[Rfam]
RNA: Eukaryotic large subunit ribosomal RNA, nucleotides 426 to 677
RNA sequence: CGCUUGGAGUCAGUCGCGUUUGCCGGGACUCAGCCUUGCUUCUGCUUGGUGCACUUCUCGGUAGAUGGGCCAGCAUCGAUUUCGGAUGCCGGAAAAUGACUUGAGGAAUGUGGCAGCUUGCUGUGUUAUAGCCUCUUGUUGUACACGGUGUCGGGGAUCGAGGACUGCAGCACGCCUUUGGUCGGGGUUCGCCCACGCCACGUGCUUAGGAUGCUGGCAAAAUGGCUUUAAACGACCCGUCUUGAAACACGG
Numbered sequence: 001c002g003c004u005u006g007g008a009g010u011c012a013g014u015c016g017c018g019u020u021u022g023c024c025g026g027g028a029c030u031c032a033g034c035c036u037u038g039c040u041u042c043u044g045c046u047u048g049g050u051g052c053a054c055u056u057c058u059c060g061g062u063a064g065a066u067g068g069g070c071c072a073g074c075a076u077c078g079a080u081u082u083c084g085g086a087u088g089c090c091g092g093a094a095a096a097u098g099a100c101u102u103g104a105g106g107a108a109u110g111u112g113g114c115a116g117c118u119u120g121c122u123g124u125g126u127u128a129u130a131g132c133c134u135c136u137u138g139u140u141g142u143a144c145a146c147g148g149u150g151u152c153g154g155g156g157a158u159c160g161a162g163g164a165c166u167g168c169a170g171c172a173c174g175c176c177u178u179u180g181g182u183c184g185g186g187g188u189u190c191g192c193c194c195a196c197g198c199c200a201c202g203u204g205c206u207u208a209g210g211a212u213g214c215u216g217g218c219a220a221a222a223u224g225g226c227u228u229u230a231a232a233c234g235a236c237c238c239g240u241c242u243u244g245a246a247a248c249a250c251g252g
Stems, first nucleotide, its partner, number of pairs: 001234002004231009017067008071216007237252004